The record is a 174-nucleotide RNA from Lactobacillus acidophilus, which matches "Lysine riboswitch aptamer" in Rfam.
Nucleotides: 174
Base pairs, nucleotide, nucleotide: 008167009166010165011164017078018077019076021074022073023072024071025070030065031064032063033062034061035060036059037058082112083111084110085109086108087107088106089105091104092103093102094101113139114138116136117135119133120132121131122130123129141159142158143157144156145155146154
Number, partner (000 for none) and nucleotide at each position: 001000c002000a003000a004000u005000g006000c007000a008167a009166u010165a011164g012000a013000g014000g015000u016000u017078g018077c019076g020000a021074c022073a023072a024071u025070c026000a027000c028000a029000a030065g031064g032063u033062a034061u035060u036059u037058u038000g039000g040000a041000g042000u043000c044000c045000g046000c047000g048000a049000a050000g051000a052000u053000g054000a055000a056000g057000a058037a059036g060035a061034a062033u063032a064031u065030c066000u067000c068000a069000g070025g071024g072023u073022u074021g075000c076019c077018g078017c079000c080000g081000a082112a083111a084110u085109g086108g087107a088106u089105u090000c091104a092103a093102u094101a095000u096000u097000c098000g099000c100000g101094u102093a103092u104091u105089a106088a107087u108086c109085u110084g111083u112082u113139g114138g115000g116136c117135u118000a119133c120132a121131g122130g123129a124000g125000c126000a127000u128000a129123u130122c131121c132120u133119g134000c135117a136116g137000a138114c139113u140000g141159u142158c143157u144156c145155g146154g147000u148000u149000a150000g151000u152000c153000c154146c155145c156144g157143a158142g159141g160000a161000g162000c163000g164011c165010u166009a167008u168000a169000a170000g171000a172000u173000u174000u
About the family: Riboswitches are metabolite binding domains within certain messenger RNAs that serve as precision sensors for their corresponding targets.